[Rfam]
The family of this 276-nucleotide sequence from Synchytrium endobioticum is "Metazoan signal recognition particle RNA". The family's consensus secondary structure is taken from published work. A search with the family's covariance model found it, with a score of 73 bits. It is annotated as a non-coding RNA gene. From the family's description: The signal recognition particle (SRP) is a universally conserved ribonucleoprotein. It is involved in the co-translational targeting of proteins to membranes. The eukaryotic SRP consists of a 300-nucleotide 7S RNA and six proteins: SRPs 72, 68, 54, 19, 14, and 9. Archaeal SRP consists of a 7S RNA and homologues of the eukaryotic SRP19 and SRP54 proteins.

RNA sequence: GCUGGACAUGUAACAGUGUCUGUAAUGGCAUCAGUGGAUGAAGACUAGUUGCUCUGGACACCCGCCCCUGAUUAUGUACGCCGCUGAUUAGCCACCUCCGUGAAGACACGCUAGACAAGUGUUGGCUCUUGCAGGAGGGUCACCACGUGUCCUAGGAAACGCUGAAUCGCAUGAGGCUGGCAACAGAGCAAUGCAAAGGCGUGAAGCAUGUCAGUCCGGAAAUCAUGGCUUGAGGCUGCAGGUUAGGGGUUCCAGUCGGCUAGGCGACUCCCCACU
Numbered sequence: 001g002c003u004g005g006a007c008a009u010g011u012a013a014c015a016g017u018g019u020c021u022g023u024a025a026u027g028g029c030a031u032c033a034g035u036g037g038a039u040g041a042a043g044a045c046u047a048g049u050u051g052c053u054c055u056g057g058a059c060a061c062c063c064g065c066c067c068c069u070g071a072u073u074a075u076g077u078a079c080g081c082c083g084c085u086g087a088u089u090a091g092c093c094a095c096c097u098c099c100g101u102g103a104a105g106a107c108a109c110g111c112u113a114g115a116c117a118a119g120u121g122u123u124g125g126c127u128c129u130u131g132c133a134g135g136a137g138g139g140u141c142a143c144c145a146c147g148u149g150u151c152c153u154a155g156g157a158a159a160c161g162c163u164g165a166a167u168c169g170c171a172u173g174a175g176g177c178u179g180g181c182a183a184c185a186g187a188g189c190a191a192u193g194c195a196a197a198g199g200c201g202u203g204a205a206g207c208a209u210g211u212c213a214g215u216c217c218g219g220a221a222a223u224c225a226u227g228g229c230u231u232g233a234g235g236c237u238g239c240a241g242g243u244u245a246g247g248g249g250u251u252c253c254a255g256u257c258g259g260c261u262a263g264g265c266g267a268c269u270c271c272c273c274a275c276u
Stems, first nucleotide, its partner, number of pairs: 001029003004021006033276003036271003043265001045263007053255001056252002064250008073242001075240002080236003084232001090230005097220001099219001102216002105212004110207003114151004119146003123142008152156001159202005169194004177186003